[Rfam]
RNA: Streptomyces RNA 1601
Organism: Streptomyces sp. SAT1
RNA sequence: GGCGACCGGCUGGACACGCAUGCCCCACGGCGAGCGGGCCCGGCCCACAAGUGGAGGCUUCGAACUCCCACCCGACCGCCCCCCGGGCGGCGGGUCACCGGUCAGACGGCCCCGUCCCAGCGGCGGCGAUCCGUCCGAAUGCGCGCCCCGCGGCCAUCGCGGCGGUCGCUCCGGUAGUUCGAGGAGCCCCGCCUGUGAUCGUCCGGGGCAUUUUUG
Dot-bracket structure: ...((((((..((..........................))(((((.(..((((((........)).))))..).((((((...)))))).))))).)))))).(((((..(((((.....)))))....))))).........(((((((((....((((((((..(((((..........))))).))))).))).)))..)))))).......